[Rfam]
Record summary
Rfam assigns this 121-nucleotide RNA from Geotalea uraniireducens to the family "Molybdenum/Tungsten riboswitch aptamer (Moco RNA motif)". The base pairs follow the family's consensus structure, which is taken from published work. Rfam links the family to the GO terms tungstate binding, molybdenum ion binding and regulation of gene expression. The source organism's lineage runs through Bacteria, Desulfuromonadia, Geobacterales, Geobacteraceae and Geotalea uraniireducens.

RNA sequence: GAAACUGACGCUCUCCGAGCUGUAGCGCCUAAAAGGUUUGUACCUGAUGGCGCACGGCCUAUGGGUUCUGCCGGAAACGGCAGCGCCUCCCUUUUGGAAAGGAGAAACCGCAGCGUUGCAA
Numbered sequence: 001g002a003a004a005c006u007g008a009c010g011c012u013c014u015c016c017g018a019g020c021u022g023u024a025g026c027g028c029c030u031a032a033a034a035g036g037u038u039u040g041u042a043c044c045u046g047a048u049g050g051c052g053c054a055c056g057g058c059c060u061a062u063g064g065g066u067u068c069u070g071c072c073g074g075a076a077a078c079g080g081c082a083g084c085g086c087c088u089c090c091c092u093u094u095u096g097g098a099a100a101g102g103a104g105a106a107a108c109c110g111c112a113g114c115g116u117u118g119c120a121a
Base pairs, nucleotide, nucleotide: 006112012106013104014103015102016101019058020057021056022055023054025053026052027051028050029049034045035044036043063088064087065086066085068083069082070081071080072079073078089097090096